[Rfam]
RNA sequence: ACGAUAUUCCGCUGGGACCUUAUAAAGUCUUAAGAGUAUUUG
Number, nucleotide and partner (000 for none) at each position: 001a000002c000003g040004a039005u038006a037007u036008u035009c034010c000011g000012c000013u032014g031015g030016g029017a028018c027019c000020u000021u000022a000023u000024a000025a000026a000027g018028u017029c016030u015031u014032a013033a000034g009035a008036g007037u006038a005039u004040u003041u000042g000
Ribosomal protein L19 leader: a 42-nucleotide RNA sequence from Enterococcus columbae.
The literature on the family includes a 1994 paper in Prog Nucleic Acid Res Mol Biol by Zengel and Lindahl, "Diverse mechanisms for regulating ribosomal protein synthesis in Escherichia coli".
The base pairs follow the family's consensus structure, which was predicted with CMfinder.